[Rfam]
RNA sequence: GGCCGGGCUUCCCAGUGUUCAGACUACCUGUUCAGGAGCCUGCCGCGUUGUACAGUAGUCUGCACAUUGGUUAUCCCGCUCC
Numbered sequence: 001g002g003c004c005g006g007g008c009u010u011c012c013c014a015g016u017g018u019u020c021a022g023a024c025u026a027c028c029u030g031u032u033c034a035g036g037a038g039c040c041u042g043c044c045g046c047g048u049u050g051u052a053c054a055g056u057a058g059u060c061u062g063c064a065c066a067u068u069g070g071u072u073a074u075c076c077c078g079c080u081c082c
Base pairs, nucleotide, nucleotide: 012070013069014068015067016066017065018064020062021061022060023059024058025057026056028055029054030053031052033050034049

This 82-nucleotide sequence from Nothoprocta perdicaria belongs to the Rfam family "mir-199 microRNA precursor family". For this family Rfam cites "microRNAs: tiny regulators with great potential" (Ambros, Cell, 2001). This family consists of the microRNA (miRNA) precursor mir-199 which appears to be specific to humans. Animal miRNAs are transcribed as ~70nt precursors and subsequently processed by the Dicer enzyme to give a ~22nt product. In this case the mature sequence comes from the 3' arm of the precursor. The family's consensus secondary structure was predicted with RNAalifold. The match comes from Rfam's covariance-model search (76 bits).